[Rfam]
RNA sequence: GUAGCGGACCGGGCCCCUCUGGCGAUCGACCGAUCGUGAUGUCGGACUGCAUGA
Numbered sequence: 001g002u003a004g005c006g007g008a009c010c011g012g013g014c015c016c017c018u019c020u021g022g023c024g025a026u027c028g029a030c031c032g033a034u035c036g037u038g039a040u041g042u043c044g045g046a047c048u049g050c051a052u053g054a
Stems, first nucleotide, its partner, number of pairs: 006048002009045004022037006